[Rfam]
RNA sequence: GCCGCGUUUGCGGGAGAGACCUUCACUCGCCCUGACGGGCGCAGGAGGGCGCCGAAGGAGCAACCGCCCCGGAAACUCUCAGGCAAAAGGACCGCGCGCGGGUU
Numbered sequence: 001g002c003c004g005c006g007u008u009u010g011c012g013g014g015a016g017a018g019a020c021c022u023u024c025a026c027u028c029g030c031c032c033u034g035a036c037g038g039g040c041g042c043a044g045g046a047g048g049g050c051g052c053c054g055a056a057g058g059a060g061c062a063a064c065c066g067c068c069c070c071g072g073a074a075a076c077u078c079u080c081a082g083g084c085a086a087a088a089g090g091a092c093c094g095c096g097c098g099c100g101g102g103u104u
Base pairs, nucleotide, nucleotide: 006099007098009096010095011094012093013092020049021048022047023046051084052083053082054080055079058078059077060076064072065071

The record is a 104-nucleotide RNA sequence from Amphiplicatus metriothermophilus, which matches "Glycine riboswitch aptamer" in Rfam. This family represents the bacterial glycine riboswitch. Pairs were carried over by alignment from the consensus structure. It scores 60 bits against the family's covariance model. A reference for the family is Mandal et al. (2004), "A glycine-dependent riboswitch that uses cooperative binding to control gene expression", Science. The source organism's lineage runs through Bacteria, Pseudomonadati, Pseudomonadota, Parvularculales and Amphiplicatus.